[Rfam]
RNA: DUF3800-V RNA
Organism: Anaerohalosphaera lusitana
RNA sequence: AUUACAUUAGCGGGUAAGAUCUGCAAUGUGCCCUGGAUGUUCCCUUCCAUCGGUUGGCCAUAGUCCAGGGAUGAUCGGCAUUGCAGGGUCCGCUUUUUUU
Numbered sequence: 001a002u003u004a005c006a007u008u009a010g011c012g013g014g015u016a017a018g019a020u021c022u023g024c025a026a027u028g029u030g031c032c033c034u035g036g037a038u039g040u041u042c043c044c045u046u047c048c049a050u051c052g053g054u055u056g057g058c059c060a061u062a063g064u065c066c067a068g069g070g071a072u073g074a075u076c077g078g079c080a081u082u083g084c085a086g087g088g089u090c091c092g093c094u095u096u097u098u099u100u
Stems, first nucleotide, its partner, number of pairs: 001100001004097001006095001010093002024083006031077001032069007043057002047053002